The record is a 76-nucleotide sequence from Myotis davidii, which matches "mir-9229 microRNA precursor family" in Rfam. The family has 7 seed sequences and 27,225 matches in Rfam 15.1. It scores 72 bits against the family's covariance model.
[Rfam]
RNA sequence: GAGAUACCCCUAUGGAGCAGGAUUUGCUUCAAUGGGGCUUUGGUGCUCACUGGGUUUGCCCCUUGAGUGUGUUACU
Number, nucleotide and partner (000 for none) at each position: 001g075002a000003g073004a072005u071006a070007c069008c000009c067010c000011u065012a064013u000014g062015g061016a000017g059018c058019a057020g000021g056022a055023u054024u000025u000026g000027c000028u000029u053030c052031a051032a000033u049034g048035g047036g046037g044038c043039u000040u000041u000042g000043g038044u037045g000046c036047u035048c034049a033050c000051u031052g030053g029054g023055u022056u021057u019058g018059c017060c000061c015062c014063u000064u012065g011066a000067g009068u000069g007070u006071g005072u004073u003074a000075c001076u000